[Rfam]
A member of the RNA family "Alphaproteobacteria transfer-messenger RNA" from Holospora curviuscula, 380 nucleotides long. From the family's description: Bacterial tmRNA, also known as 10Sa RNA or SsrA, is named for its dual tRNA and mRNA-like properties. Its role is to liberate the mRNA from a stalled ribosome. The family is grouped with related families in Rfam's "tRNA clan". By type it is a non-coding RNA gene. The base pairs follow the family's consensus structure, which is taken from published work.

RNA sequence: ACUAUUGCUACUAAGCUUGCAGUAUGUUAAAGUGAAAAAGCCAUUUGGCUAUAACGAUAAACGCUAUGUGCAGUAAACGUUGCGGACCCGGGGGCAGAACCCGGCGCCUCCACCAAAAAAGAAAUCAAUUCUUUUUCUCUGGGGGCGAAUUAGGAUCGACGUACGUUGGACCAUAUGGUUUUCGUUCACUAUGGUACCAGUGUAUUGGGCCAAAAACAUAAAUGCGAACUUUAACAACGCAUUUGGCGAAGUUGCCGUUAAGAAAGCCGCGAAUGGUGAACUUUCGGCCGGUGUACGGUAUGCUAUAGCUGCUUAGAGCGCUCUAGUAUAUCAACCUAAGUCAGCGGUUUUGGGAGCACCGGGCAACAGAAAGCUCCCGA
Dot-bracket structure: .......................................(((....)))...(((((.....(((((((........(((.(((...(((((.......)))))(((((((.............................)))))))............)))))).......)))))))..)))))((((.[[[..[[))))....]].]]]....................................................................................................................................((((...[[[...)))).............]]]...